RNA sequence: GCUCUUUUGUCUCAUUCAUAGUGAACUUAUACAGACCACGAUAAAACCCUGGAUUUCUUUGGAUCAAUGGGGCAUAAUUCUUUUAUGGUGUAUACAAGGUUUAUAAUUUGCCAGAGAACAGACCUGGGUGCGAUUCCCAGCACAUCUACCAAAACUCUCAUUGCGGGGGUGAAUAGGAUCGACGUCUGUGGUUGAGGAUAAAUUCGCUCGGCGGGCUCGUCUUUACAGGGCGCUUAAAAUGAUAAUAUUGCACCUGUUUGGAAUGACACCUCAAUUGUGGUAAGCCAAGCGCUUGCAACCUAAAGGUUAUUUCAAACGCGGUUUGAGAAGGCACCGGGCAACAGAAGCCUUCUUCU
Numbered sequence: 001g002c003u004c005u006u007u008u009g010u011c012u013c014a015u016u017c018a019u020a021g022u023g024a025a026c027u028u029a030u031a032c033a034g035a036c037c038a039c040g041a042u043a044a045a046a047c048c049c050u051g052g053a054u055u056u057c058u059u060u061g062g063a064u065c066a067a068u069g070g071g072g073c074a075u076a077a078u079u080c081u082u083u084u085a086u087g088g089u090g091u092a093u094a095c096a097a098g099g100u101u102u103a104u105a106a107u108u109u110g111c112c113a114g115a116g117a118a119c120a121g122a123c124c125u126g127g128g129u130g131c132g133a134u135u136c137c138c139a140g141c142a143c144a145u146c147u148a149c150c151a152a153a154a155c156u157c158u159c160a161u162u163g164c165g166g167g168g169g170u171g172a173a174u175a176g177g178a179u180c181g182a183c184g185u186c187u188g189u190g191g192u193u194g195a196g197g198a199u200a201a202a203u204u205c206g207c208u209c210g211g212c213g214g215g216c217u218c219g220u221c222u223u224u225a226c227a228g229g230g231c232g233c234u235u236a237a238a239a240u241g242a243u244a245a246u247a248u249u250g251c252a253c254c255u256g257u258u259u260g261g262a263a264u265g266a267c268a269c270c271u272c273a274a275u276u277g278u279g280g281u282a283a284g285c286c287a288a289g290c291g292c293u294u295g296c297a298a299c300c301u302a303a304a305g306g307u308u309a310u311u312u313c314a315a316a317c318g319c320g321g322u323u324u325g326a327g328a329a330g331g332c333a334c335c336g337g338g339c340a341a342c343a344g345a346a347g348c349c350u351u352c353u354u355c356u
Stems, first nucleotide, its partner, number of pairs: 040083001087208004092204001101198002112188003118185002124140005141171003145167003210221003214233001217229002319336004327352006
RNA: Alphaproteobacteria transfer-messenger RNA